[Rfam]
This 173-nucleotide RNA sequence from Coprobacillus cateniformis belongs to the Rfam family "Lysine riboswitch aptamer".
RNA sequence: UGUCAAGAUAGAGGCGCAAAAGUCAAAAAUUCUUCAUUCAAAAGAUGCAACUGUGAAGAAGGCGGGGCGAUUGCCGAAGGAGUAAUGAUUUGCAUGUUAUUAUUUCCUGGGAGUAUAGAGAAUAUCUAUGCUACUGUCACUUUAUAAUAUUAAAGUGGGGUGCUAUUGCGUUG
Numbered sequence: 001u002g003u004c005a006a007g008a009u010a011g012a013g014g015c016g017c018a019a020a021a022g023u024c025a026a027a028a029a030u031u032c033u034u035c036a037u038u039c040a041a042a043a044g045a046u047g048c049a050a051c052u053g054u055g056a057a058g059a060a061g062g063c064g065g066g067g068c069g070a071u072u073g074c075c076g077a078a079g080g081a082g083u084a085a086u087g088a089u090u091u092g093c094a095u096g097u098u099a100u101u102a103u104u105u106c107c108u109g110g111g112a113g114u115a116u117a118g119a120g121a122a123u124a125u126c127u128a129u130g131c132u133a134c135u136g137u138c139a140c141u142u143u144a145u146a147a148u149a150u151u152a153a154a155g156u157g158g159g160g161u162g163c164u165a166u167u168g169c170g171u172u173g
Stems, first nucleotide, its partner, number of pairs: 007167005016074004022068003032061004078108003081104008109135002112132008137158007

The base pairs follow the family's consensus structure, which is taken from published work.